[Rfam]
RNA sequence: GAUAAAUAGAAAUGGGUUAAACCAUUUCACACGCGAAAACUGGGGAGGUAUUCGAUUAAAGCGCGGUUAUCUGCAGCUACCGUUAUUGGAAUAAUCGACGCGUAUUUUUAUUAAAGCAAGGCUCUUAGCCUUGCUUUUUUUG
Numbered sequence: 001g002a003u004a005a006a007u008a009g010a011a012a013u014g015g016g017u018u019a020a021a022c023c024a025u026u027u028c029a030c031a032c033g034c035g036a037a038a039a040c041u042g043g044g045g046a047g048g049u050a051u052u053c054g055a056u057u058a059a060a061g062c063g064c065g066g067u068u069a070u071c072u073g074c075a076g077c078u079a080c081c082g083u084u085a086u087u088g089g090a091a092u093a094a095u096c097g098a099c100g101c102g103u104a105u106u107u108u109u110a111u112u113a114a115a116g117c118a119a120g121g122c123u124c125u126u127a128g129c130c131u132u133g134c135u136u137u138u139u140u141u142g
Stems, first nucleotide, its partner, number of pairs: 003142004011026005032102004039049003053097005060078003063074003080089003115135008